Rfam assigns this 169-nucleotide RNA from Magnetospirillum aberrantis to the family "Manganese Mn2+ riboswitch aptamer (yybP-ykoY)".
RNA sequence: GCCCGCGUCAUUGGGGAGUAGCCGCCCUCGCGAAGAGGGGGACACGUCAACAGACUUGGGCCGCGGCCCAUGGCGUGUCCGACUGCAAGGCAGUUUGGCGAGACCUUUGGUUUUGUCCGCCACACCCGGGGGCCGGGGGGCGGCAAGCCAUUGGUCUGUCCAUCCGGCC
Numbered sequence: 001g002c003c004c005g006c007g008u009c010a011u012u013g014g015g016g017a018g019u020a021g022c023c024g025c026c027c028u029c030g031c032g033a034a035g036a037g038g039g040g041g042a043c044a045c046g047u048c049a050a051c052a053g054a055c056u057u058g059g060g061c062c063g064c065g066g067c068c069c070a071u072g073g074c075g076u077g078u079c080c081g082a083c084u085g086c087a088a089g090g091c092a093g094u095u096u097g098g099c100g101a102g103a104c105c106u107u108u109g110g111u112u113u114u115g116u117c118c119g120c121c122a123c124a125c126c127c128g129g130g131g132g133c134c135g136g137g138g139g140g141c142g143g144c145a146a147g148c149c150a151u152u153g154g155u156c157u158g159u160c161c162a163u164c165c166g167g168c169c
Base pairs, nucleotide, nucleotide: 026038027037028036040080041079042078043077044076045075046074047073048072049071057070058069059068060067061066

About the family: This RNA was originally discovered in E. coli during a large scale screen and was named SraF. The family was later found to exist upstream of related families of protein genes in many bacteria, including the the yybP and ykoK genes in B. subtilis. The specific functions of these proteins are unknown, but this structured RNA element may be involved in their genetic regulation as a riboswitch.